[Rfam]
RNA sequence: CCGGCUGCCACUGUCGGGGCCGGCAGGAUCGAGUGGAUGAAUCGCCUCAUCGAUCUGGAAUCGAUCUUGUAUCCAUGUUGCUCAAAGGGAGAAUGUGGCUAUGAGCA
Numbered sequence: 001c002c003g004g005c006u007g008c009c010a011c012u013g014u015c016g017g018g019g020c021c022g023g024c025a026g027g028a029u030c031g032a033g034u035g036g037a038u039g040a041a042u043c044g045c046c047u048c049a050u051c052g053a054u055c056u057g058g059a060a061u062c063g064a065u066c067u068u069g070u071a072u073c074c075a076u077g078u079u080g081c082u083c084a085a086a087g088g089g090a091g092a093a094u095g096u097g098g099c100u101a102u103g104a105g106c107a
Base pairs, nucleotide, nucleotide: 001023002022003021004020005019006018008017009016028065029064030063031062032061066105067104068103069102070101071100073098074097075096076095077094078093079092081091082090083089
Dot-bracket structure: ((((((.((......))))))))....(((((............................)))))((((((.(((((((.(((.....)))))))))).))))))..